This 188-nucleotide RNA sequence from Rattus norvegicus belongs to the Rfam family "Small Cajal body specific RNA 16".
RNA sequence: AUGGUCUGGGGAAAGGCUCCUUGUGUGGUUGACCCUGCCCGAGGUGGGUGCAGCCCUGUACCAGAUAGCCCGACCUUGACCUAAAGUAAAUUCCCAGAGGCGCAUCCUCCCUGGGGUUAGAAUUUGCAGUAACAGGUGUGAACCUCUCGGUGGCAGUUCAGUGGUCAUGUAUGAUACUGCAAACAGGA
Numbered sequence: 001a002u003g004g005u006c007u008g009g010g011g012a013a014a015g016g017c018u019c020c021u022u023g024u025g026u027g028g029u030u031g032a033c034c035c036u037g038c039c040c041g042a043g044g045u046g047g048g049u050g051c052a053g054c055c056c057u058g059u060a061c062c063a064g065a066u067a068g069c070c071c072g073a074c075c076u077u078g079a080c081c082u083a084a085a086g087u088a089a090a091u092u093c094c095c096a097g098a099g100g101c102g103c104a105u106c107c108u109c110c111c112u113g114g115g116g117u118u119a120g121a122a123u124u125u126g127c128a129g130u131a132a133c134a135g136g137u138g139u140g141a142a143c144c145u146c147u148c149g150g151u152g153g154c155a156g157u158u159c160a161g162u163g164g165u166c167a168u169g170u171a172u173g174a175u176a177c178u179g180c181a182a183a184c185a186g187g188a
Base pairs, nucleotide, nucleotide: 003081004080005079006078008076009075010074015070016069017068018067020064022063023062025061026060027055028054029053030052031051034048035047093115094114095113097109098108099107100106123183124182125181126180127179128178129177130176131175133173134172139167140166141165143163145161149158150157151156
The family's consensus secondary structure was predicted with RNAfold. Rfam links the family to the GO terms RNA processing and nucleolus. scaRNAs are a specific class of small nuclear RNAs which localise to the Cajal bodies and guide the modification of RNA polymerase II transcribed spliceosomal RNAs U1, U2, U4, U5 and U12. ACA47 belongs to the H/ACA box class of guide RNAs as it has the predicted hairpin-hinge-hairpin-tail structure, the conserved H/ACA-box motifs and is found associated with GAR1. ACA47 is predicted to guide the pseudouridylation of residue U5 of the U1 spliceosomal snRNA. Rfam's curators put it in the seed alignment. The family's RNA type in Rfam is small Cajal body RNA.